Rfam assigns this 174-nucleotide sequence from Merluccius polli to the family "U2 spliceosomal RNA". U2 is a small nuclear RNA (snRNA) component of the spliceosome (involved in pre-mRNA splicing). Complementary binding between U2 snRNA (in an area lying towards the 5' end but 3' to hairpin I) and the branchpoint sequence (BPS) of the intron results the bulging out of an unpaired adenosine, on the BPS, which initiates a nucleophilic attack at the intronic 5' splice site, thus starting the first of two transesterification reactions that mediate splicing. The family's RNA type in Rfam is spliceosomal small nuclear RNA.
[Rfam]
RNA sequence: AAAACUUUUCAAACGAAAAAAAUCUGUUCUUAUCAGUUUAAUAUCUGAUACGUCCCCUAUACGGGGACUACAUAUUAAACGUCUUUUUGGCAACAGGCAUCGUUGAAGGAGCUUGCUCCAUGCGAUCCACGCAUUGACCCGUAUUGCAGUGCCGCUGGGGACGGUGCACCACUC
Numbered sequence: 001a002a003a004a005c006u007u008u009u010c011a012a013a014c015g016a017a018a019a020a021a022a023u024c025u026g027u028u029c030u031u032a033u034c035a036g037u038u039u040a041a042u043a044u045c046u047g048a049u050a051c052g053u054c055c056c057c058u059a060u061a062c063g064g065g066g067a068c069u070a071c072a073u074a075u076u077a078a079a080c081g082u083c084u085u086u087u088u089g090g091c092a093a094c095a096g097g098c099a100u101c102g103u104u105g106a107a108g109g110a111g112c113u114u115g116c117u118c119c120a121u122g123c124g125a126u127c128c129a130c131g132c133a134u135u136g137a138c139c140c141g142u143a144u145u146g147c148a149g150u151g152c153c154g155c156u157g158g159g160g161a162c163g164g165u166g167c168a169c170c171a172c173u174c
Base pairs, nucleotide, nucleotide: 031050032049033048034047035046036045052068053067054066055065056064057063096128097127099126100125101124102123103122108119109118110117111116131167132166133165134164135163136162138159139158140157141155142154

A search with the family's covariance model found it, with a score of 98 bits. The family is grouped with related families in Rfam's "U2 clan". The source organism's lineage runs through Eukaryota, Vertebrata, Osteoglossocephalai, Gadariae and Merluccius. Pairs were carried over by alignment from the consensus structure, which is taken from published work.